[Rfam]
About this RNA: The family of this 53-nucleotide RNA sequence from Rhodobacter sp. SGA-6-6 is "terC RNA". The family's RNA type in Rfam is cis-regulatory element.

RNA sequence: GCCGCGGGCCGGGCCCCUCUGACGGCGACCUGCCGUGAUGUCGGACCGCAUCG
Numbered sequence: 001g002c003c004g005c006g007g008g009c010c011g012g013g014c015c016c017c018u019c020u021g022a023c024g025g026c027g028a029c030c031u032g033c034c035g036u037g038a039u040g041u042c043g044g045a046c047c048g049c050a051u052c053g
Stems, first nucleotide, its partner, number of pairs: 006047002009044004022036005
It scores 58 bits against the family's covariance model.